[Rfam]
Shown here is a 125-nucleotide RNA from Rhizobium subbaraonis, a member of the family "Alphaproteobacterial ar14". On this family, see del Val et al., RNA Biol 2012: "A survey of sRNA families in alpha-proteobacteria". Rfam 15.1 lists 784 matches to the family in 332 species.
RNA sequence: CAUAUCGCGACGGAUCCACUCCUCCUCCCAGGAUCGGUCGCAACGGAUCGGCGGCACUCCUCCUCCCGGUUGCCGAUCACAGUUUGAAAAGCCUGCCGCACCUCCUCCCGCGGCAGGCUUUUCUG
Numbered sequence: 001c002a003u004a005u006c007g008c009g010a011c012g013g014a015u016c017c018a019c020u021c022c023u024c025c026u027c028c029c030a031g032g033a034u035c036g037g038u039c040g041c042a043a044c045g046g047a048u049c050g051g052c053g054g055c056a057c058u059c060c061u062c063c064u065c066c067c068g069g070u071u072g073c074c075g076a077u078c079a080c081a082g083u084u085u086g087a088a089a090a091g092c093c094u095g096c097c098g099c100a101c102c103u104c105c106u107c108c109c110g111c112g113g114c115a116g117g118c119u120u121u122u123c124u125g
Stems, first nucleotide, its partner, number of pairs: 007041003011037001013035005046078010089120011
Dot-bracket structure: ......(((.(.(((((.............))))).).)))....((((((((((.............))))))))))..........(((((((((((..........))))))))))).....